[Rfam]
RNA sequence: CAAUUUGUUGAUGAUAGAUCAUCAUCUAAUUAUAAUAGACUUAUAUUUAAUUGCUCAGAAUCACCCGUUCGUUACCAUAAGGCCGAUUACAUCAAUUCCUCAUCACAAAGCAGCUUUGAGAAGCCGCGAUGACUUGAAAUCAACAGUGUCUAGACC
Number, nucleotide and partner (000 for none) at each position: 001c000002a000003a000004u154005u153006u152007g151008u000009u148010g000011a000012u146013g000014a000015u143016a000017g000018a140019u139020c000021a000022u000023c136024a135025u000026c000027u132028a000029a130030u129031u128032a000033u000034a000035a000036u000037a000038g000039a000040c000041u000042u000043a000044u000045a000046u000047u000048u000049a000050a000051u000052u000053g000054c000055u000056c000057a000058g000059a000060a000061u000062c000063a000064c000065c000066c000067g000068u000069u000070c000071g000072u000073u000074a000075c000076c000077a000078u000079a000080a000081g000082g000083c000084c000085g000086a000087u000088u000089a000090c000091a000092u000093c000094a000095a000096u000097u000098c000099c000100u000101c000102a000103u000104c000105a000106c000107a000108a000109a000110g000111c000112a000113g000114c000115u000116u000117u000118g000119a000120g000121a000122a000123g000124c000125c000126g000127c000128g031129a030130u029131g000132a027133c000134u000135u024136g023137a000138a000139a019140u018141c000142a000143a015144c000145a000146g012147u000148g009149u000150c000151u007152a006153g005154a004155c000156c000

This 156-nucleotide RNA sequence from Populus alba belongs to the Rfam family "MIR480 microRNA precursor family". It scores 54 bits against the family's covariance model. For this family Rfam cites "Novel and mechanical stress-responsive MicroRNAs in Populus trichocarpa that are absent from Arabidopsis" (Lu et al., Plant Cell, 2005). NCBI's taxonomy places the organism under Eukaryota, Mesangiospermae, Salicaceae, Saliceae, Populus. Pairs were carried over by alignment from the consensus structure, which was predicted with WAR.